[Rfam]
RNA: c-di-GMP-I riboswitch aptamer
RNA sequence: GCCUGCCAAAGCCAACCUCGUAGCGAUGCGAGCACGGAAAGCCACGGAUCUCACCGAGAUGGCCGGGUUGCCAGA
Numbered sequence: 001g002c003c004u005g006c007c008a009a010a011g012c013c014a015a016c017c018u019c020g021u022a023g024c025g026a027u028g029c030g031a032g033c034a035c036g037g038a039a040a041g042c043c044a045c046g047g048a049u050c051u052c053a054c055c056g057a058g059a060u061g062g063c064c065g066g067g068u069u070g071c072c073a074g075a
Stems, first nucleotide, its partner, number of pairs: 012037002017032006040069004045065003048060005